[Rfam]
RNA: mir-544 microRNA precursor family
Organism: Loxodonta africana
RNA sequence: AUCAUCUGGAGAUCUUGUUAAGAUGUAGAUUCUGAUUCAGGAAGUCUGAGUGGUACCUGAGAGUCUGCAUUUCUAACAAGCUUCCAGGUGAUACCAG
Numbered sequence: 001a002u003c004a005u006c007u008g009g010a011g012a013u014c015u016u017g018u019u020a021a022g023a024u025g026u027a028g029a030u031u032c033u034g035a036u037u038c039a040g041g042a043a044g045u046c047u048g049a050g051u052g053g054u055a056c057c058u059g060a061g062a063g064u065c066u067g068c069a070u071u072u073c074u075a076a077c078a079a080g081c082u083u084c085c086a087g088g089u090g091a092u093a094c095c096a097g
Stems, first nucleotide, its partner, number of pairs: 003090003009084003014080007021072003025068005031062003